[Rfam]
RNA sequence: GCCGGGCGCAGUGGCGUGCGCCUGUAAUCCGGCUACUCGGAGGCUUGGGUUGAGGAUCGCUUGAGGACGGGAGCUCUGCGCUGUGCCGCGCUAUGCCGAUCGGGCGUCCACGCCAAGUCCGGCAUCGACAUGGGGAGCCAGGGGGAGCCCUGCGCUCUCCAGGUCGCCUAAGGAGGGACGAAACGGCCCAGGCCGGCGACGGAGCAGGUUAAAGUCCCCGUGCCGAUCAGUGGUGGGAUAGCGCCUGUGAAUAGACGGUACAGAGCAGCCCGGCCGAUAUGGCGGCACCCAACCCUUU
Number, nucleotide and partner (000 for none) at each position: 001g044002c043003c042004g023005g022006g021007c020008g019009c018010a017011g000012u000013g000014g000015c000016g000017u010018g009019c008020g007021c006022c005023u004024g000025u000026a000027a000028u041029c040030c039031g000032g000033c000034u000035a000036c000037u000038c000039g030040g029041a028042g003043g002044c001045u000046u000047g295048g294049g293050u292051u291052g290053a000054g288055g000056a000057u285058c284059g283060c282061u281062u000063g000064a000065g275066g274067a000068c272069g271070g270071g269072a000073g000074c000075u000076c268077u267078g266079c265080g000081c263082u262083g261084u260085g259086c258087c257088g256089c000090g000091c254092u253093a252094u251095g000096c249097c000098g000099a000100u000101c247102g246103g245104g244105c243106g242107u241108c237109c236110a000111c235112g234113c233114c232115a231116a000117g228118u000119c000120c225121g224122g223123c222124a221125u220126c166127g165128a164129c163130a000131u161132g160133g159134g158135g157136a156137g155138c154139c152140a151141g150142g149143g148144g000145g000146a000147g000148c143149c142150c141151u140152g139153c000154g138155c137156u136157c135158u134159c133160c132161a131162g000163g129164u128165c127166g126167c173168c172169u000170a000171a000172g168173g167174a000175g218176g217177g216178a215179c214180g000181a000182a000183a000184c000185g210186g209187c208188c207189c000190a000191g000192g000193c202194c201195g200196g000197c000198g000199a000200c195201g194202g193203a000204g000205c000206a000207g188208g187209u186210u185211a000212a000213a000214g179215u178216c177217c176218c175219c000220g125221u124222g123223c122224c121225g120226a000227u000228c117229a000230g000231u115232g114233g113234u112235g111236g109237g108238a000239u000240a000241g107242c106243g105244c104245c103246u102247g101248u000249g096250a000251a094252u093253a092254g091255a000256c088257g087258g086259u085260a084261c083262a082263g081264a000265g079266c078267a077268g076269c071270c070271c069272g068273g000274c066275c065276g000277a000278u000279a000280u000281g061282g060283c059284g058285g057286c000287a000288c054289c000290c052291a051292a050293c049294c048295c047296u000297u000298u000
This 298-nucleotide RNA sequence from Eptatretus burgeri belongs to the Rfam family "Metazoan signal recognition particle RNA". From the family's description: The signal recognition particle (SRP) is a universally conserved ribonucleoprotein. By type it is a non-coding RNA gene. A search with the family's covariance model found it, with a score of 254 bits. Rfam links the family to the GO terms SRP-dependent cotranslational protein targeting to membrane, signal sequence recognition and signal recognition particle, endoplasmic reticulum targeting. The base pairs follow the family's consensus structure, which is taken from published work.